[Rfam]
RNA sequence: GCAGACUCAACUCUGUUUAAGUCUGACAAAUCCAGCCUUAGACUUUUUAUGUCUGCGACAGUAACGUUAUAAGAAGAACGUUAUAACCUGCCUUGCCAUUCACUUGGGAGGUGACCGUGUCUUCUCAGACAAACUU
Numbered sequence: 001g002c003a004g005a006c007u008c009a010a011c012u013c014u015g016u017u018u019a020a021g022u023c024u025g026a027c028a029a030a031u032c033c034a035g036c037c038u039u040a041g042a043c044u045u046u047u048u049a050u051g052u053c054u055g056c057g058a059c060a061g062u063a064a065c066g067u068u069a070u071a072a073g074a075a076g077a078a079c080g081u082u083a084u085a086a087c088c089u090g091c092c093u094u095g096c097c098a099u100u101c102a103c104u105u106g107g108g109a110g111g112u113g114a115c116c117g118u119g120u121c122u123u124c125u126c127a128g129a130c131a132a133a134c135u136u
Stems, first nucleotide, its partner, number of pairs: 001056006015043007023035003068127001072125005078118003082114001
RNA: Small nucleolar RNA SNORA77
Organism: Sinocyclocheilus rhinocerous